[Rfam]
RNA sequence: AAAAGUAGAGGAGUUGUUUUAUUGAAUUAGUGGAAACAAGGAAACACUUUAUUCAAUAAAACUAAAAA
Numbered sequence: 001a002a003a004a005g006u007a008g009a010g011g012a013g014u015u016g017u018u019u020u021a022u023u024g025a026a027u028u029a030g031u032g033g034a035a036a037c038a039a040g041g042a043a044a045c046a047c048u049u050u051a052u053u054c055a056a057u058a059a060a061a062c063u064a065a066a067a068a
Stems, first nucleotide, its partner, number of pairs: 014064001016062004022056002027051001029049001030047003
RNA: Cyano-1 RNA